[Rfam]
RNA sequence: UUGCAGGUAAAGUUACAGUGUAGCUGCAAAGUGCUGCAUUGUCGUUCCCCCUGCACAAAGUAAAAUUGUUUCUUCUAUCCUUGUCUGUUUAGAUUCCACAGCAGACAGGGACGCUUGGUUUCGUACAU
Number, nucleotide and partner (000 for none) at each position: 001u000002u000003g054004c053005a052006g051007g050008u000009a000010a000011a000012g000013u000014u000015a042016c041017a040018g039019u038020g037021u036022a035023g034024c033025u000026g000027c000028a000029a000030a000031g000032u000033g024034c023035u022036g021037c020038a019039u018040u017041g016042u015043c000044g000045u000046u000047c000048c000049c000050c007051c006052u005053g004054c003055a000056c000057a000058a000059a000060g000061u000062a000063a000064a000065a000066u000067u000068g000069u000070u000071u000072c000073u000074u000075c000076u000077a000078u000079c000080c109081u108082u107083g106084u000085c104086u103087g102088u101089u000090u000091a000092g000093a000094u000095u000096c000097c000098a000099c000100a000101g088102c087103a086104g085105a000106c083107a082108g081109g080110g000111a000112c000113g000114c000115u000116u000117g000118g000119u000120u000121u000122c000123g000124u000125a000126c000127a000128u000

Rfam assigns this 128-nucleotide RNA sequence from Phrynocephalus forsythii to the family "Small nucleolar RNA SNORA63". The base pairs follow the family's consensus structure, which was predicted with PFOLD. Its family is annotated with RNA processing and nucleolus in the Gene Ontology. E3 belongs to the H/ACA class of snoRNAs and is involved in the processing of eukaryotic pre-rRNA and has regions of complementarity to 18S rRNA. E3 is encoded in introns in the gene for protein synthesis initiation factor 4AII. The family's RNA type in Rfam is H/ACA-box small nucleolar RNA.